[Rfam]
RNA: c-di-GMP-I-GGC riboswitch aptamer
Organism: Desulfitobacterium metallireducens
RNA sequence: AAUGACAAGAGCAAACCUGGCGAAAGUCAGGGACGCAAAGCUAUGGGUCGUCCAGUUUGGCUGACGAUUGCCAGGUUACCAAAU
Numbered sequence: 001a002a003u004g005a006c007a008a009g010a011g012c013a014a015a016c017c018u019g020g021c022g023a024a025a026g027u028c029a030g031g032g033a034c035g036c037a038a039a040g041c042u043a044u045g046g047g048u049c050g051u052c053c054a055g056u057u058u059g060g061c062u063g064a065c066g067a068u069u070g071c072c073a074g075g076u077u078a079c080c081a082a083a084u
Stems, first nucleotide, its partner, number of pairs: 001084001003081002011036002016031006034070001039077004044073003047068006